Annotation:
Shown here is a 118-nucleotide RNA from Moraxella pluranimalium, a member of the family "Glycine riboswitch aptamer". Rfam links the family to the GO term glycine biosynthetic process. NCBI's taxonomy places the organism under Bacteria, Pseudomonadati, Gammaproteobacteria, Moraxellaceae, Moraxella. Rfam describes the family as follows. This family represents the bacterial glycine riboswitch.

RNA sequence: UCAACACAAUCUGGAGAGCGGUAUUGCCAAUUACCCAUUUUUGCUUGGCAUUAUCCACCGAAGGGAAGAAAACCAUUUUUUGGUUGAAAAUCUCAGGUCAAAGGACAGAUGGGGUGCU
Numbered sequence: 001u002c003a004a005c006a007c008a009a010u011c012u013g014g015a016g017a018g019c020g021g022u023a024u025u026g027c028c029a030a031u032u033a034c035c036c037a038u039u040u041u042u043g044c045u046u047g048g049c050a051u052u053a054u055c056c057a058c059c060g061a062a063g064g065g066a067a068g069a070a071a072a073c074c075a076u077u078u079u080u081u082g083g084u085u086g087a088a089a090a091u092c093u094c095a096g097g098u099c100a101a102a103g104g105a106c107a108g109a110u111g112g113g114g115u116g117c118u
Base pairs, nucleotide, nucleotide: 007112009110010109011108012107013106020055021054022053023052057098058097059096060094061093064092065091070085071084